A member of the RNA family "Group II catalytic intron D1-D4-3" from Psychroflexus sediminis, 180 nucleotides long. Pairs were carried over by alignment from the consensus structure. NCBI's taxonomy places the organism under Bacteria, Pseudomonadati, Flavobacteriales, Flavobacteriaceae, Psychroflexus.
RNA sequence: CCAAUUGUGAAGUUGGGACUAAAGGAAGCGGGACUACAAAUUCUGAUACUGACGAACAGGAAUCGGAUAUGAGGCUACAAGGUUGGAUGAGCAAGCACAUCAUUGUGAUGUCCAAAACAUUUCUUUCGAAAUUAAAACCGAAGUAGUAGAUCCGACAGGCAUCAGGAGAAAGAAGAUGUU
Numbered sequence: 001c002c003a004a005u006u007g008u009g010a011a012g013u014u015g016g017g018a019c020u021a022a023a024g025g026a027a028g029c030g031g032g033a034c035u036a037c038a039a040a041u042u043c044u045g046a047u048a049c050u051g052a053c054g055a056a057c058a059g060g061a062a063u064c065g066g067a068u069a070u071g072a073g074g075c076u077a078c079a080a081g082g083u084u085g086g087a088u089g090a091g092c093a094a095g096c097a098c099a100u101c102a103u104u105g106u107g108a109u110g111u112c113c114a115a116a117a118c119a120u121u122u123c124u125u126u127c128g129a130a131a132u133u134a135a136a137a138c139c140g141a142a143g144u145a146g147u148a149g150a151u152c153c154g155a156c157a158g159g160c161a162u163c164a165g166g167a168g169a170a171a172g173a174a175g176a177u178g179u180u
Stems, first nucleotide, its partner, number of pairs: 001016006028180001031177001037172001041167006049158003063155006074147003078143001081139004085113004091106004